Shown here is an 89-nucleotide RNA from Winslowiella iniecta, a member of the family "Peptidase-S11 RNA". A search with the family's covariance model found it, with a score of 45 bits.
RNA sequence: AGUAUGAUGCAGCUGCCAGCCCCCGUGUGGCCUCACUUUUCACGGAUGGCGGCCUGUGUAUUGCACAGCAAAACAUCAACCCGCUUAAG
Number, nucleotide and partner (000 for none) at each position: 001a000002g000003u000004a000005u000006g000007a000008u000009g000010c000011a000012g000013c000014u000015g053016c052017c051018a000019g050020c049021c048022c000023c045024c044025g043026u042027g041028u000029g000030g000031c000032c000033u000034c000035a000036c000037u000038u000039u000040u000041c027042a026043c025044g024045g023046a000047u000048g021049g020050c019051g017052g016053c015054c068055u067056g066057u065058g064059u063060a000061u000062u000063g059064c058065a057066c056067a055068g054069c000070a000071a000072a000073a000074c000075a000076u000077c000078a000079a000080c000081c000082c000083g000084c000085u000086u000087a000088a000089g000
Rfam classes the family as a cis-regulatory element.